This 164-nucleotide RNA from Peribacillus loiseleuriae belongs to the Rfam family "SAM riboswitch aptamer (S box leader)".
Nucleotides: 164
Base pairs, nucleotide, nucleotide: 001164002163003162004161005160006159007158008157013042016041017040018039022032023031024030026135029132043127044126045125046124048123049122050119051118052117053116054115055114056113057112058111136153137152138151139150140149
Number, partner (000 for none) and nucleotide at each position: 001164c002163u003162c004161u005160u006159a007158u008157c009000c010000c011000g012000a013042g014000u015000u016041g017040g018039u019000g020000g021000a022032g023031g024030g025000a026135c027000a028000g029132g030024c031023c032022c033000u034000a035000a036000g037000a038000a039018a040017c041016c042013c043127a044126g045125c046124a047000a048123c049122c050119u051118g052117c053116c054115g055114a056113a057112g058111u059000g060000u061000a062000g063000a064000a065000a066000g067000u068000u069000u070000g071000c072000g073000a074000a075000a076000g077000a078000u079000u080000u081000a082000u083000u084000g085000c086000a087000a088000u089000u090000a091000a092000a093000a094000g095000c096000a097000a098000u099000u100000c101000u102000c103000u104000u105000u106000u107000a108000a109000u110000a111058a112057u113056u114055u115054u116053g117052g118051c119050g120000u121000u122049g123048g124046u125045g126044c127043u128000a129000a130000c131000c132029u133000g134000a135026g136153c137152a138151a139150g140149g141000u142000a143000a144000a145000a146000a147000a148000c149140c150139c151138u152137u153136g154000a155000a156000c157008g158007a159006u160005a161004a162003g163002a164001g